mir-9229 microRNA precursor family: a 76-nucleotide RNA from Myotis myotis.
Nucleotides: 076
Stems, first nucleotide, its partner, number of pairs: 001075007009067004014062002018058002021056001023054001029053008037044002
Number, partner (000 for none) and nucleotide at each position: 001075g002074a003073g004072a005071c006070a007069c008000c009067c010066u011065u012064a013000u014062g015061g016000a017000a018058c019057a020000g021056g022000a023054c024000u025000u026000g027000c028000u029053u030052c031051a032050g033049u034048g035047g036046g037044g038043c039000u040000u041000u042000g043038g044037c045000a046036c047035u048034c049033a050032c051031u052030g053029a054023g055000c056021c057019u058018g059000c060000c061015c062014c063000c064012u065011g066010a067009g068000u069007g070006u071005g072004u073003c074002u075001c076000u